RNA sequence: AAUUUCUGGUCUCUCCAUUUGGUAUUGCGUUUGUUGUAUACGCAAUACAAAAUGGAGAGACCAGAAAU
Numbered sequence: 001a002a003u004u005u006c007u008g009g010u011c012u013c014u015c016c017a018u019u020u021g022g023u024a025u026u027g028c029g030u031u032u033g034u035u036g037u038a039u040a041c042g043c044a045a046u047a048c049a050a051a052a053u054g055g056a057g058a059g060a061c062c063a064g065a066a067a068u
Base pairs, nucleotide, nucleotide: 002068003067004066005065006064007063008062009061010060011059012058013057014056015055016054017053018052019051020050022048023047024046025045026044027043028042029041030040
Dot-bracket structure: .(((((((((((((((((((.(((((((((.........))))))))).)))))))))))))))))))

Shown here is a 68-nucleotide RNA sequence from Drosophila pseudoobscura, a member of the family "mir-2574 microRNA precursor family". Rfam 15.1 lists 16 matches to the family in 3 species. Taxonomically the source falls in Sophophora (Eukaryota, Ecdysozoa, Eumetabola, Brachycera). The base pairs follow the family's consensus structure, which was predicted with RNAalifold. Rfam's curators put it in the seed alignment.